[Rfam]
RNA: small nucleolar RNA snoR134
Organism: Miscanthus lutarioriparius
RNA sequence: CUGCACGGUGGUAACCCCCGGCUUGUCGGAUUUGUACCCUUUGAAGAAGGAACGAAGCCCCAAUGCGUGUGCUAGAUCUAGCUUGCCAUUCAGUAUUGCAGGCCCUGAAAAAUCUUUUUGAUCGGUCUGUGUCAAAGGAAUGGAUACAAAU
Numbered sequence: 001c002u003g004c005a006c007g008g009u010g011g012u013a014a015c016c017c018c019c020g021g022c023u024u025g026u027c028g029g030a031u032u033u034g035u036a037c038c039c040u041u042u043g044a045a046g047a048a049g050g051a052a053c054g055a056a057g058c059c060c061c062a063a064u065g066c067g068u069g070u071g072c073u074a075g076a077u078c079u080a081g082c083u084u085g086c087c088a089u090u091c092a093g094u095a096u097u098g099c100a101g102g103c104c105c106u107g108a109a110a111a112a113u114c115u116u117u118u119u120g121a122u123c124g125g126u127c128u129g130u131g132u133c134a135a136a137g138g139a140a141u142g143g144a145u146a147c148a149a150a151u
Stems, first nucleotide, its partner, number of pairs: 003072005010066001020059004024054002026047002086143006094134001097131006104120001